[Rfam]
Ruegeria cis2 sRNA: a 156-nucleotide RNA sequence from Ruegeria sp. ANG-S4. Rfam links the family to the GO term regulation of gene expression. It scores 62 bits against the family's covariance model. The organism belongs to Ruegeria, within Bacteria. By type it is a small RNA. The family's consensus secondary structure was predicted with RNAfold.

RNA sequence: AUUGGUAUUUCGCGGGAAAUAGUUGCGAAACACAAACCCGCGACACUGGUCUAUGAUGUGAAAUAAAGGGUUCCACGCAAACAUGGUCAGCAUGAAGCCGCCCAGCGCGUUUGCAACAAACAUCUUGCCGGAAAACACCAUGUUCAACCGGCGAUA
Numbered sequence: 001a002u003u004g005g006u007a008u009u010u011c012g013c014g015g016g017a018a019a020u021a022g023u024u025g026c027g028a029a030a031c032a033c034a035a036a037c038c039c040g041c042g043a044c045a046c047u048g049g050u051c052u053a054u055g056a057u058g059u060g061a062a063a064u065a066a067a068g069g070g071u072u073c074c075a076c077g078c079a080a081a082c083a084u085g086g087u088c089a090g091c092a093u094g095a096a097g098c099c100g101c102c103c104a105g106c107g108c109g110u111u112u113g114c115a116a117c118a119a120a121c122a123u124c125u126u127g128c129c130g131g132a133a134a135a136c137a138c139c140a141u142g143u144u145c146a147a148c149c150g151g152c153g154a155u156a
Base pairs, nucleotide, nucleotide: 002035003034004033006032008030009029011027012026013025014024015023039055040054042051043050044049064156065155068152070082071081072080086148087146089144090143091142092141093140094139101130103127104126105125107123110119111118